[Rfam]
RNA sequence: AAUAAGAUGGCUGAGAGAACAAGCGGUGGAUUGUAAAUCCAUACACAAAGGUUAAAUCCCUUUUCUUAUUA
Numbered sequence: 001a002a003u004a005a006g007a008u009g010g011c012u013g014a015g016a017g018a019a020c021a022a023g024c025g026g027u028g029g030a031u032u033g034u035a036a037a038u039c040c041a042u043a044c045a046c047a048a049a050g051g052u053u054a055a056a057u058c059c060c061u062u063u064u065c066u067u068a069u070u071a
Stems, first nucleotide, its partner, number of pairs: 001070007010024003026042005047063005
Rfam assigns this 71-nucleotide sequence to the family "tRNA".
Rfam links the family to the GO term triplet codon-amino acid adaptor activity.
The family's RNA type in Rfam is transfer RNA.
The sequence is in the family's curated seed alignment.
Pairs were carried over by alignment from the consensus structure, which is taken from published work.